[Rfam]
RNA sequence: UUUGCAAGUGACGACAUAACAGACAGGGACAUCAGAAUCCUAAAUUAGGAUGACAAAUGCUGACAUGUCUUGGGAAUCUCUCUGAUGCAUU
Number, nucleotide and partner (000 for none) at each position: 001u000002u000003u089004g088005c087006a086007a000008g000009u000010g000011a000012c000013g000014a000015c000016a000017u000018a000019a000020c000021a000022g000023a000024c000025a000026g000027g000028g000029a000030c000031a000032u000033c000034a000035g000036a000037a000038u000039c000040c000041u000042a000043a000044a000045u000046u000047a000048g000049g000050a000051u000052g000053a000054c000055a000056a000057a000058u000059g000060c000061u000062g000063a000064c000065a000066u000067g000068u000069c000070u000071u000072g000073g000074g000075a000076a000077u000078c000079u000080c000081u000082c000083u000084g000085a000086u006087g005088c004089a003090u000091u000

This 91-nucleotide RNA sequence from Papaver nudicaule belongs to the Rfam family "Small nucleolar RNA R44/J54/Z268 family". Pairs were carried over by alignment from the consensus structure, which was predicted with PFOLD. Lineage of the source: Eukaryota > Streptophyta > Papaveraceae > Papaveroideae > Papaver. Clan: SNORD74 clan.